Rfam assigns this 106-nucleotide sequence from Shouchella oshimensis to the family "SAM riboswitch aptamer (S box leader)". The match comes from Rfam's covariance-model search (75 bits). Taxonomically the source falls in Shouchella oshimensis (Bacteria, Bacillota, Bacilli, Shouchella). About the family: The SAM riboswitch is found upstream of a number of genes which code for proteins involved in methionine or cysteine biosynthesis in Gram-positive bacteria. The SAM riboswitch acts at the level of transcription termination control. The predicted structure consists of a complex stem-loop region followed by a single stem loop terminator region.

[Rfam]
RNA sequence: AUCUUAUCGAGAGUGGUGGAGGGAACUGACCCGACGAAGCCCGGCAACCAACCUUGUGUGAGGUUAAGGUGCUACAUUCAGCAGACUUUGUUCUGGGAGAUAAGUG
Numbered sequence: 001a002u003c004u005u006a007u008c009g010a011g012a013g014u015g016g017u018g019g020a021g022g023g024a025a026c027u028g029a030c031c032c033g034a035c036g037a038a039g040c041c042c043g044g045c046a047a048c049c050a051a052c053c054u055u056g057u058g059u060g061a062g063g064u065u066a067a068g069g070u071g072c073u074a075c076a077u078u079c080a081g082c083a084g085a086c087u088u089u090g091u092u093c094u095g096g097g098a099g100a101u102a103a104g105u106g
Stems, first nucleotide, its partner, number of pairs: 003104006013042001015041003021032003026081004043073004048069002050065004077098001082095004